[Rfam]
RNA sequence: AGAUGAGAGAUACACCCCGCCCACAGGGGACUGUGGGCGACUUCAGGACGAGGCCUCCCCAGCUUCGCCCUGGUCGUGCCCUCGCGCACACAACAGGAGCCUCCGGCUCCGAAUCUCCUCACCGAUCGGA
Numbered sequence: 001a002g003a004u005g006a007g008a009g010a011u012a013c014a015c016c017c018c019g020c021c022c023a024c025a026g027g028g029g030a031c032u033g034u035g036g037g038c039g040a041c042u043u044c045a046g047g048a049c050g051a052g053g054c055c056u057c058c059c060c061a062g063c064u065u066c067g068c069c070c071u072g073g074u075c076g077u078g079c080c081c082u083c084g085c086g087c088a089c090a091c092a093a094c095a096g097g098a099g100c101c102u103c104c105g106g107c108u109c110c111g112a113a114u115c116u117c118c119u120c121a122c123c124g125a126u127c128g129g130a
Stems, first nucleotide, its partner, number of pairs: 004121004009117002018039009043073005049067006076089004096110006122129002
Shown here is a 130-nucleotide RNA from Streptomyces sp. 3213.3, a member of the family "Streptomyces RNA 5676". Identified by deep sequencing of transcriptome at the end of exponential growth phase. Appears longer on northern blot than sequencing transcript. This indicates processing step. Streptomyces specific. By type it is a small RNA. The organism belongs to Streptomyces, within Bacteria.